[Rfam]
Nucleotides: 076
Stems, first nucleotide, its partner, number of pairs: 001076005
Number, partner (000 for none) and nucleotide at each position: 001076a002075g003074c004073a005072a006000g007000a008000u009000g010000a011000u012000g013000a014000g015000c016000u017000a018000c019000u020000g021000u022000g023000c024000c025000c026000u027000g028000a029000a030000u031000a032000u033000c034000c035000a036000u037000g038000u039000g040000g041000a042000u043000a044000g045000u046000a047000c048000a049000u050000u051000a052000u053000g054000g055000c056000c057000u058000u059000c060000a061000a062000a063000g064000u065000u066000a067000u068000c069000u070000g071000a072005u073004u074003g075002c076001u
About this RNA
A member of the RNA family "Small nucleolar RNA R160" from Dioscorea zingiberensis, 76 nucleotides long. The organism belongs to Dioscorea, within Eukaryota. snoR160 is a C/D box small nucleolar RNA, which acts as a methylation guide for 25S ribosomal RNA in plants. snoR160 has been alternatively named snoZ270 in rice. Gene Ontology terms of the family: RNA processing and nucleolus.